[Rfam]
RNA sequence: AGUUGAUGCGCAAGACGGAUUUCCUCCCAGUGCCGUUGCAUCGACUGUUCCCCUCUGGAGGCUUUUGCCUUCACAAUUCACGGGCCGCGGCUUUAUGCCGGCGGCCCUUUUU
Numbered sequence: 001a002g003u004u005g006a007u008g009c010g011c012a013a014g015a016c017g018g019a020u021u022u023c024c025u026c027c028c029a030g031u032g033c034c035g036u037u038g039c040a041u042c043g044a045c046u047g048u049u050c051c052c053c054u055c056u057g058g059a060g061g062c063u064u065u066u067g068c069c070u071u072c073a074c075a076a077u078u079c080a081c082g083g084g085c086c087g088c089g090g091c092u093u094u095a096u097g098c099c100g101g102c103g104g105c106c107c108u109u110u111u112u
Stems, first nucleotide, its partner, number of pairs: 001046005007040003015036004056073007082107006088100004
RNA: Alphaproteobacterial ar15
Organism: Agrobacterium albertimagni